[Rfam]
RNA: Eukaryotic large subunit ribosomal RNA, nucleotides 423 to 644
RNA sequence: CGUUCGCGGCCAGACUCGCGGCGGGUGUUCAGCGCGCCGUCAGGCGCGUCCACUCGCCCGUCCGCGGGCCAGCAUCAGUUUGGGCGGUCGGAUAAAGGCCUUGGGAACGUAGCCCCUCGGGGUGUUAUAGCCCUCGGCACAAUGCGGCCAGCCCGGACUGAGGAACUCGCUUCGGCUAGGAUGCUGGCGUAAUGGCCGUGAACGGCCCGUCUUGAAACACGG
Numbered sequence: 001c002g003u004u005c006g007c008g009g010c011c012a013g014a015c016u017c018g019c020g021g022c023g024g025g026u027g028u029u030c031a032g033c034g035c036g037c038c039g040u041c042a043g044g045c046g047c048g049u050c051c052a053c054u055c056g057c058c059c060g061u062c063c064g065c066g067g068g069c070c071a072g073c074a075u076c077a078g079u080u081u082g083g084g085c086g087g088u089c090g091g092a093u094a095a096a097g098g099c100c101u102u103g104g105g106a107a108c109g110u111a112g113c114c115c116c117u118c119g120g121g122g123u124g125u126u127a128u129a130g131c132c133c134u135c136g137g138c139a140c141a142a143u144g145c146g147g148c149c150a151g152c153c154c155g156g157a158c159u160g161a162g163g164a165a166c167u168c169g170c171u172u173c174g175g176c177u178a179g180g181a182u183g184c185u186g187g188c189g190u191a192a193u194g195g196c197c198g199u200g201a202a203c204g205g206c207c208c209g210u211c212u213u214g215a216a217a218c219a220c221g222g
Stems, first nucleotide, its partner, number of pairs: 001204012017066005024059001070186007207222004